A member of the RNA family "small nucleolar RNA snoR137" from Digitaria exilis, 144 nucleotides long.
The family's RNA type in Rfam is H/ACA-box small nucleolar RNA.
It scores 57 bits against the family's covariance model.
For this family Rfam cites "Mining small RNA sequencing data: a new approach to identify small nucleolar RNAs in Arabidopsis" (Chen and Wu, Nucleic Acids Res, 2009).
Its family is annotated with nucleolus and RNA processing in the Gene Ontology.
RNA sequence: GUUGCUUCACCACUGGAAGAAUGGCCUGAUUUUUCUCUUAUGUGGUCAUUCUGUAGAGGGAAGCAUAAAUUAAACUACAAGCCAGAAUUAAACAGCAUGAUGCUUAUUUCACUGCAUCCGUGUUACCUGUCUCCUGGCACAGUC
Numbered sequence: 001g002u003u004g005c006u007u008c009a010c011c012a013c014u015g016g017a018a019g020a021a022u023g024g025c026c027u028g029a030u031u032u033u034u035c036u037c038u039u040a041u042g043u044g045g046u047c048a049u050u051c052u053g054u055a056g057a058g059g060g061a062a063g064c065a066u067a068a069a070u071u072a073a074a075c076u077a078c079a080a081g082c083c084a085g086a087a088u089u090a091a092a093c094a095g096c097a098u099g100a101u102g103c104u105u106a107u108u109u110c111a112c113u114g115c116a117u118c119c120g121u122g123u124u125a126c127c128u129g130u131c132u133c134c135u136g137g138c139a140c141a142g143u144c
Base pairs, nucleotide, nucleotide: 003065004064005063006062007061008060019051020050021049022048023047024046025045026044081138082137083136084135085134087132094124095123096122098120099118100117101116102115